[Rfam]
Rfam assigns this 87-nucleotide RNA sequence from Ipomoea nil to the family "Small nucleolar RNA R21". It is annotated as a C/D-box small nucleolar RNA. Rfam links the family to the GO terms RNA processing and nucleolus. The literature on the family includes a 2001 paper in J Mol Biol by Barneche et al., "Identification of 66 box C/D snoRNAs in Arabidopsis thaliana: extensive gene duplications generated multiple isoforms predicting new ribosomal RNA 2'-O-methylation sites". The base pairs follow the family's consensus structure, which was predicted with PFOLD. NCBI's taxonomy places the organism under Eukaryota, Streptophytina, Tracheophyta, Gunneridae, Ipomoea.
RNA sequence: CGCCCCUAUGAAGAAUGUUUUCAAUCAAUGUUAAAAGUAGUGGACUGAAUAUUAUGCAUUGAGGAUAAAUUUAAACUCUGAGGGGUU
Numbered sequence: 001c002g003c004c005c006c007u008a009u010g011a012a013g014a015a016u017g018u019u020u021u022c023a024a025u026c027a028a029u030g031u032u033a034a035a036a037g038u039a040g041u042g043g044a045c046u047g048a049a050u051a052u053u054a055u056g057c058a059u060u061g062a063g064g065a066u067a068a069a070u071u072u073a074a075a076c077u078c079u080g081a082g083g084g085g086u087u
Stems, first nucleotide, its partner, number of pairs: 002086005